[Rfam]
RNA: MIR7502 microRNA precursor family
RNA sequence: UUUCAAAAUUUUUCUCCAUUUCUAUUGUUAAAAAUAGGAAUGACUAACGGAAUAACUAGACAACUACAAAUGGCAUGCCAUGUGUACCUCAUGUCGAUGUACAGGGACUAGUUUUUAACGGUAAAAAUGGAUGAAAUUUAGCUA
Numbered sequence: 001u002u003u004c005a006a007a008a009u010u011u012u013u014c015u016c017c018a019u020u021u022c023u024a025u026u027g028u029u030a031a032a033a034a035u036a037g038g039a040a041u042g043a044c045u046a047a048c049g050g051a052a053u054a055a056c057u058a059g060a061c062a063a064c065u066a067c068a069a070a071u072g073g074c075a076u077g078c079c080a081u082g083u084g085u086a087c088c089u090c091a092u093g094u095c096g097a098u099g100u101a102c103a104g105g106g107a108c109u110a111g112u113u114u115u116u117a118a119c120g121g122u123a124a125a126a127a128u129g130g131a132u133g134a135a136a137u138u139u140a141g142c143u144a
Stems, first nucleotide, its partner, number of pairs: 004141001006139003010136004015131002018128004023123004028118006